RNA sequence: AUACUUACCUGGCACUGGAGUCAUCCUUGAUCAAGAAGGAGGAUCUCCCGAGCAGAGGCCUGCCAUUGCACUUGGGUGGAUGACGUUCGCCACAUCCGCAAACUGCGGUUGCUUGGGGUGCACAAUUUUUGGUAGCGGGGCUGCGUGCGCGCGGCCCCUGU
Numbered sequence: 001a002u003a004c005u006u007a008c009c010u011g012g013c014a015c016u017g018g019a020g021u022c023a024u025c026c027u028u029g030a031u032c033a034a035g036a037a038g039g040a041g042g043a044u045c046u047c048c049c050g051a052g053c054a055g056a057g058g059c060c061u062g063c064c065a066u067u068g069c070a071c072u073u074g075g076g077u078g079g080a081u082g083a084c085g086u087u088c089g090c091c092a093c094a095u096c097c098g099c100a101a102a103c104u105g106c107g108g109u110u111g112c113u114u115g116g117g118g119u120g121c122a123c124a125a126u127u128u129u130u131g132g133u134a135g136c137g138g139g140g141c142u143g144c145g146u147g148c149g150c151g152c153g154g155c156c157c158c159u160g161u
Base pairs, nucleotide, nucleotide: 012121013120014119015118017048018047019046020045024043025042026041027040028039050088051087052086053085055084057081059079061078062077063076064075090116091115092114094110097107098106136160137159138158139157140156142153143152144151145150
RNA: U1 spliceosomal RNA
Organism: Trichonephila inaurata